RNA sequence: AUUCUUUUCUAAGUACUCAUGCCGUAGGGAGAUUUUAUCAUUUACCAGCACCUGCUGCUAGAGUGCUUACGAAUGGAU
Numbered sequence: 001a002u003u004c005u006u007u008u009c010u011a012a013g014u015a016c017u018c019a020u021g022c023c024g025u026a027g028g029g030a031g032a033u034u035u036u037a038u039c040a041u042u043u044a045c046c047a048g049c050a051c052c053u054g055c056u057g058c059u060a061g062a063g064u065g066c067u068u069a070c071g072a073a074u075g076g077a078u
Base pairs, nucleotide, nucleotide: 001078002077003076004075006073007072010069011068012067013066014065015064016063017062018061024055025054026053027052028051
The family of this 78-nucleotide RNA from Chironomus riparius is "mir-252 microRNA precursor family". Pairs were carried over by alignment from the consensus structure, which was predicted with RNAalifold. The organism belongs to Chironomus, within Eukaryota. Its Rfam clan is "mir-252 microRNA precursor family". For this family Rfam cites "Large-scale sequencing reveals 21U-RNAs and additional microRNAs and endogenous siRNAs in C. elegans" (Ruby et al., Cell, 2006).